[Rfam]
RNA sequence: GCAAGGUAAGGCAAUGGUGUUCUGCCUAUUUGAACCGCUGCAAAGCUGAUGACGCCUACCCAAAU
Numbered sequence: 001g002c003a004a005g006g007u008a009a010g011g012c013a014a015u016g017g018u019g020u021u022c023u024g025c026c027u028a029u030u031u032g033a034a035c036c037g038c039u040g041c042a043a044a045g046c047u048g049a050u051g052a053c054g055c056c057u058a059c060c061c062a063a064a065u
Stems, first nucleotide, its partner, number of pairs: 010026004016056006037046003
RNA: Fluoride riboswitch aptamer (crcB RNA motif)
Organism: Mucilaginibacter gilvus